[Rfam]
RNA sequence: GAGCACUGAUGAAAUAUUGAGAAAGUCAUGCACCACUCUGACUUCUUUGAGAGUGAUGAUAAUUUCUCCUACCCAUAUUAUUUUCUGAGCUC
Dot-bracket structure: ((((....................................................................................))))
RNA: Small nucleolar RNA Z221/R21b